[Rfam]
RNA: Small nucleolar RNA snoR31/Z110/Z27
Organism: Kalanchoe fedtschenkoi
RNA sequence: AGAAGAGAGGAUGAAAUCUUGUAAAUCUUAGGACACCUUCUGACACAGUUGUAUUCUGUGUAUGAGAAAUGAUUUUUGAUUUCUGAUUCUUCU
Numbered sequence: 001a002g003a004a005g006a007g008a009g010g011a012u013g014a015a016a017u018c019u020u021g022u023a024a025a026u027c028u029u030a031g032g033a034c035a036c037c038u039u040c041u042g043a044c045a046c047a048g049u050u051g052u053a054u055u056c057u058g059u060g061u062a063u064g065a066g067a068a069a070u071g072a073u074u075u076u077u078g079a080u081u082u083c084u085g086a087u088u089c090u091u092c093u
Base pairs, nucleotide, nucleotide: 001093002092003091004090005089006088041047042046
Dot-bracket structure: ((((((..................................((...))........................................))))))